[Rfam]
RNA sequence: AAUGCAAGCUGUUCUACCGCCGCGAUCUAUCGGGGAGGAAAGUCCGGGCAACGCAGAGCAUCCCGCUUCCUAACGGGAAGAGGUUUGGGAUUGAACACCCGAAUUAUGGAAAGUGCCGCAGAAAAUAUACCGCCGAUGGCGCAAGCACAGGUAAGGUUGAAAUCGUGAGGUAAGAGCUCACGACUGUGCCGGGUAACCGGUGUGGUGGUAAACCCCGGGAGUUGAAAGACCAAAUAGGCUAACGCAUGUAGGGCUGCUCGUCCGAUGUUAGUGGGUAGGUCGUUAGAGAUAAAUGGCGACAUUUAUAGUAGAUUAAUGGUAGAAACCGAUUUAUCGGAUACAGAACCCGGCUUAUAGGCUUGCAUUUUUU
Numbered sequence: 001a002a003u004g005c006a007a008g009c010u011g012u013u014c015u016a017c018c019g020c021c022g023c024g025a026u027c028u029a030u031c032g033g034g035g036a037g038g039a040a041a042g043u044c045c046g047g048g049c050a051a052c053g054c055a056g057a058g059c060a061u062c063c064c065g066c067u068u069c070c071u072a073a074c075g076g077g078a079a080g081a082g083g084u085u086u087g088g089g090a091u092u093g094a095a096c097a098c099c100c101g102a103a104u105u106a107u108g109g110a111a112a113g114u115g116c117c118g119c120a121g122a123a124a125a126u127a128u129a130c131c132g133c134c135g136a137u138g139g140c141g142c143a144a145g146c147a148c149a150g151g152u153a154a155g156g157u158u159g160a161a162a163u164c165g166u167g168a169g170g171u172a173a174g175a176g177c178u179c180a181c182g183a184c185u186g187u188g189c190c191g192g193g194u195a196a197c198c199g200g201u202g203u204g205g206u207g208g209u210a211a212a213c214c215c216c217g218g219g220a221g222u223u224g225a226a227a228g229a230c231c232a233a234a235u236a237g238g239c240u241a242a243c244g245c246a247u248g249u250a251g252g253g254c255u256g257c258u259c260g261u262c263c264g265a266u267g268u269u270a271g272u273g274g275g276u277a278g279g280u281c282g283u284u285a286g287a288g289a290u291a292a293a294u295g296g297c298g299a300c301a302u303u304u305a306u307a308g309u310a311g312a313u314u315a316a317u318g319g320u321a322g323a324a325a326c327c328g329a330u331u332u333a334u335c336g337g338a339u340a341c342a343g344a345a346c347c348c349g350g351c352u353u354a355u356a357g358g359c360u361u362g363c364a365u366u367u368u369u370u
Base pairs, nucleotide, nucleotide: 001366002365003364004363005362006361007360008359009358010357011355012324013323014322015321016320017319018318020035021034023032024031025030040353041352042351044350045349046348047347048346049224050223051222052221056259057258058257059256061220062219063218064217065216066080067079068078069077070076081107082105083104084103085102086101087100088099089098108215109214113213114212115209116208117207130156131155132152133151134150137147138146140145164182165181166180167179168178169177185204186203187202188201189200190199191198192197228281229280230279231278238272239271240270241269242268243267251263252262253261254260289306290305291304292303293302294301295300